The family of this 33-nucleotide sequence is "DUF805b RNA". The family's RNA type in Rfam is cis-regulatory element.

RNA sequence: AUAGGGGAAACUGAAAACCUUUUAGAGUAGGAA
Numbered sequence: 001a002u003a004g005g006g007g008a009a010a011c012u013g014a015a016a017a018c019c020u021u022u023u024a025g026a027g028u029a030g031g032a033a
Base pairs, nucleotide, nucleotide: 003020004019005018011031012030